[Rfam]
RNA sequence: UGAAGGCGAUGAAGCGAAAGGUUGCUGCAAAAGGAAAUUUUCGCUGAGCAAUGUCUAGAUCUAAGAAUCGGGCGACAA
Numbered sequence: 001u002g003a004a005g006g007c008g009a010u011g012a013a014g015c016g017a018a019a020g021g022u023u024g025c026u027g028c029a030a031a032a033g034g035a036a037a038u039u040u041u042c043g044c045u046g047a048g049c050a051a052u053g054u055c056u057a058g059a060u061c062u063a064a065g066a067a068u069c070g071g072g073c074g075a076c077a078a
Stems, first nucleotide, its partner, number of pairs: 014044003018041004025033002052077004058073001060071002
The record is a 78-nucleotide RNA sequence from Natronincola ferrireducens, which matches "S10-Clostridia ribosomal protein leader" in Rfam. The base pairs follow the family's consensus structure, which is taken from published work.